[Rfam]
RNA sequence: CCAAAAGCUUCGCCAACACGUUCAUCUGUAAGCAAGGUGAAGUAAGGAACGGGGGAACCAUUCUUGGGGGCGUAUUCUCCAACUUUUAAGUAAGUAGAGAGGGGCAUCUCUCAGCCCUAGCCCGUCAGCUAACUCCGUAGGCAUUGAGAGGAGACCU
Dot-bracket structure: ((...........................................)).((((((....(.......)(((.....((((.................)))).((((........))))...))).........))))))...................